[Rfam]
RNA sequence: GCGGGGCUGGUCUAGUCUGGCUAUGACCUCAGCCUUCCAAGCUGACGACCCGGAUUCAAAUUCCGGGCCCCGCA
Numbered sequence: 001g002c003g004g005g006g007c008u009g010g011u012c013u014a015g016u017c018u019g020g021c022u023a024u025g026a027c028c029u030c031a032g033c034c035u036u037c038c039a040a041g042c043u044g045a046c047g048a049c050c051c052g053g054a055u056u057c058a059a060a061u062u063c064c065g066g067g068c069c070c071c072g073c074a
Base pairs, nucleotide, nucleotide: 001073002072003071004070005069006068007067010027011026012025029045030044031043032042033041050066051065052064053063054062

tRNA: a 74-nucleotide RNA sequence from Halapricum salinum. Lineage of the source: Archaea > Methanobacteriati > Halobacteriales > Haloarculaceae > Halapricum. The family's consensus secondary structure is taken from published work. It scores 58 bits against the family's covariance model. Its family is annotated with triplet codon-amino acid adaptor activity in the Gene Ontology.